[Rfam]
RNA sequence: CGCAAUAGUGAGGGGAUUUUUAGGUGCUGGCUAAUAUCGCCUAUUUUUUCUUAUUGUUACGUGUACGUAGCCAAUACGUAAAUAACGCAACAAUACAAC
Numbered sequence: 001c002g003c004a005a006u007a008g009u010g011a012g013g014g015g016a017u018u019u020u021u022a023g024g025u026g027c028u029g030g031c032u033a034a035u036a037u038c039g040c041c042u043a044u045u046u047u048u049u050c051u052u053a054u055u056g057u058u059a060c061g062u063g064u065a066c067g068u069a070g071c072c073a074a075u076a077c078g079u080a081a082a083u084a085a086c087g088c089a090a091c092a093a094u095a096c097a098a099c
Stems, first nucleotide, its partner, number of pairs: 008096003026040002029037001056091003060087003065079003
The record is a 99-nucleotide RNA from Staphylococcus haemolyticus, which matches "Fst antitoxin sRNA" in Rfam. The base pairs follow the family's consensus structure, which was predicted with RNAalifold. A reference for the family is Fozo et al. (2010), "Abundance of type I toxin-antitoxin systems in bacteria: searches for new candidates and discovery of novel families", Nucleic Acids Res. Rfam's curators write: It is located on the opposite strand of SprA1 sRNA. The organism belongs to Staphylococcus haemolyticus, within Bacteria. Gene Ontology term of the family: mRNA binding.